[Rfam]
RNA sequence: GCCACCACCGGCGAUGGAGCUCGCCGCGACCGCGCCGCUCGGCGCUGAUGGCUUCUGCCCGUGA
Number, nucleotide and partner (000 for none) at each position: 001g000002c000003c000004a000005c000006c000007a000008c000009c000010g025011g024012c023013g022014a000015u000016g055017g054018a053019g052020c051021u050022c013023g012024c011025c010026g000027c000028g000029a000030c000031c000032g045033c044034g043035c042036c000037g000038c000039u000040c000041g000042g035043c034044g033045c032046u000047g000048a000049u000050g021051g020052c019053u018054u017055c016056u000057g000058c000059c000060c000061g000062u000063g000064a000
A member of the RNA family "Fluoride riboswitch aptamer (crcB RNA motif)" from Amycolatopsis sp. M39, 64 nucleotides long. Pairs were carried over by alignment from the consensus structure, which is taken from published work. The organism belongs to Amycolatopsis, within Bacteria. The match comes from Rfam's covariance-model search (41 bits).